This 99-nucleotide RNA sequence from Anaerotignum lactatifermentans belongs to the Rfam family "azaaromatic riboswitch aptamer (yjdF RNA)". It scores 85 bits against the family's covariance model. Pairs were carried over by alignment from the consensus structure, which is taken from published work. The source organism's lineage runs through Bacteria, Bacillati, Clostridia, Anaerotignaceae and Anaerotignum lactatifermentans.
[Rfam]
RNA sequence: UCUUGCAGAGAUAAAAACACGAUCCGGUUGGUAGUCCGGAUGCGGCAAGACGCCGUCAGUAACCUGCCUCCUUGGUUGUCCCUUCUUUGUGCAGUAAAA
Numbered sequence: 001u002c003u004u005g006c007a008g009a010g011a012u013a014a015a016a017a018c019a020c021g022a023u024c025c026g027g028u029u030g031g032u033a034g035u036c037c038g039g040a041u042g043c044g045g046c047a048a049g050a051c052g053c054c055g056u057c058a059g060u061a062a063c064c065u066g067c068c069u070c071c072u073u074g075g076u077u078g079u080c081c082c083u084u085c086u087u088u089g090u091g092c093a094g095u096a097a098a099a
Stems, first nucleotide, its partner, number of pairs: 004091008022041006042056005066076003